[Rfam]
RNA sequence: GUCUGUGCCGCUUCUCCUGGUUCAUGCUUAUGAGCUGUUUUUGGUUCCUGAGCUUUGGAAAGUGAAGCAAAACUCUCAAUGGUUCCUCUCGCUAUCCGGGGCAGAACUUUUAUUGAUGCUGCUGGACGUCGAGGAACUAUAUUC
Numbered sequence: 001g002u003c004u005g006u007g008c009c010g011c012u013u014c015u016c017c018u019g020g021u022u023c024a025u026g027c028u029u030a031u032g033a034g035c036u037g038u039u040u041u042u043g044g045u046u047c048c049u050g051a052g053c054u055u056u057g058g059a060a061a062g063u064g065a066a067g068c069a070a071a072a073c074u075c076u077c078a079a080u081g082g083u084u085c086c087u088c089u090c091g092c093u094a095u096c097c098g099g100g101g102c103a104g105a106a107c108u109u110u111u112a113u114u115g116a117u118g119c120u121g122c123u124g125g126a127c128g129u130c131g132a133g134g135a136a137c138u139a140u141a142u143u144c
Stems, first nucleotide, its partner, number of pairs: 001073002004069002009064005016058002019055002026053005032047005082137007090128002095126005106114001

This 144-nucleotide sequence from Digitaria exilis belongs to the Rfam family "Small nucleolar RNA snoR136". Its family is annotated with nucleolus and RNA processing in the Gene Ontology. It scores 52 bits against the family's covariance model. Taxonomically the source falls in Digitaria (Eukaryota, Viridiplantae, Liliopsida, Panicoideae). It is annotated as an H/ACA-box small nucleolar RNA.